[Rfam]
Nucleotides: 089
Stems, first nucleotide, its partner, number of pairs: 008080002011077003018071008033056004
Number, partner (000 for none) and nucleotide at each position: 001000c002000g003000g004000a005000a006000u007000u008080c009079u010000c011077g012076g013075c014000u015000u016000u017000g018071a019070g020069a021068a022067c023066u024065g025064a026000a027000u028000u029000c030000c031000a032000a033056g034055g035054g036053u037000u038000g039000a040000g041000g042000u043000u044000u045000a046000c047000c048000a049000g050000c051000c052000a053036g054035c055034c056033c057000a058000u059000g060000g061000a062000c063000c064025u065024c066023a067022g068021u069020u070019c071018u072000g073000g074000a075013g076012c077011u078000u079009g080008g081000g082000g083000u084000u085000u086000c087000u088000a089000a